Ribosomal protein L10 leader: a 124-nucleotide sequence from Vagococcus humatus. The match comes from Rfam's covariance-model search (79 bits).
RNA sequence: UCAAAGAUUUUAUAUGUACCGAAGACAGUAGGUGGUUUUUACCUUAAUUUCCUACCGAGGACAAUAUUGUGAGUAACAAUAGUCCCUCUAUGUCAACGGUGGCAUGGAGUUUUUUUGUAUAAAA
Numbered sequence: 001u002c003a004a005a006g007a008u009u010u011u012a013u014a015u016g017u018a019c020c021g022a023a024g025a026c027a028g029u030a031g032g033u034g035g036u037u038u039u040u041a042c043c044u045u046a047a048u049u050u051c052c053u054a055c056c057g058a059g060g061a062c063a064a065u066a067u068u069g070u071g072a073g074u075a076a077c078a079a080u081a082g083u084c085c086c087u088c089u090a091u092g093u094c095a096a097c098g099g100u101g102g103c104a105u106g107g108a109g110u111u112u113u114u115u116u117g118u119a120u121a122a123a124a
Stems, first nucleotide, its partner, number of pairs: 028055005034043003086109010

Pairs were carried over by alignment from the consensus structure, which was predicted with CMfinder. The organism belongs to Vagococcus, within Bacteria.